[Rfam]
RNA: 7SK RNA
RNA sequence: GGAUGUGAGGGCGAUCUGGCUGCGACAUCUGUCACCCCAUUGAUCGCCAGGGUUGAUUCGGCUGAUCUGGCUGGCUAGGCGGGUGUCCCCUUCCUCCCUCACCGCUCCAUGUGCGUCCCUCCCGAAGCUGCGCGCUCGGUCGAAGAGGACGACCUUCCCCGAAUAGAGGAGGACCGGUCUUCGGUCAAGGGUAUACGAGUAGCUGCGCUCCCCUGCUAGAACCUCCAAACAAGCUCUCAAGGUCCAUUGUAGGAGAACGUAGGGUAGUCAAGCUUCCAAGACUCCAGACACAAAAUUCUGCCAAGUUAGCUCAUUUAU
Numbered sequence: 001g002g003a004u005g006u007g008a009g010g011g012c013g014a015u016c017u018g019g020c021u022g023c024g025a026c027a028u029c030u031g032u033c034a035c036c037c038c039a040u041u042g043a044u045c046g047c048c049a050g051g052g053u054u055g056a057u058u059c060g061g062c063u064g065a066u067c068u069g070g071c072u073g074g075c076u077a078g079g080c081g082g083g084u085g086u087c088c089c090c091u092u093c094c095u096c097c098c099u100c101a102c103c104g105c106u107c108c109a110u111g112u113g114c115g116u117c118c119c120u121c122c123c124g125a126a127g128c129u130g131c132g133c134g135c136u137c138g139g140u141c142g143a144a145g146a147g148g149a150c151g152a153c154c155u156u157c158c159c160c161g162a163a164u165a166g167a168g169g170a171g172g173a174c175c176g177g178u179c180u181u182c183g184g185u186c187a188a189g190g191g192u193a194u195a196c197g198a199g200u201a202g203c204u205g206c207g208c209u210c211c212c213c214u215g216c217u218a219g220a221a222c223c224u225c226c227a228a229a230c231a232a233g234c235u236c237u238c239a240a241g242g243u244c245c246a247u248u249g250u251a252g253g254a255g256a257a258c259g260u261a262g263g264g265u266a267g268u269c270a271a272g273c274u275u276c277c278a279a280g281a282c283u284c285c286a287g288a289c290a291c292a293a294a295a296u297u298c299u300g301c302c303a304a305g306u307u308a309g310c311u312c313a314u315u316u317a318u
Stems, first nucleotide, its partner, number of pairs: 001108003005102007013093002018090002024087010035074002037070003042067004046062003116172002118169004122139004127135002140162003147158003202273003208267002211264006223255004229250004307317003
Dot-bracket structure: (((.(((((((.((...((....((((((((((.(((((..(((((((...........))).)))))))..))...)))))))))).)).))..)))))))...))).......((((((((((.((.....))))))(((....(((......))).)))...)))).)).............................(((...((.((((((......((((..((((..............)))).))))...)))))).))...))).................................(((.....))).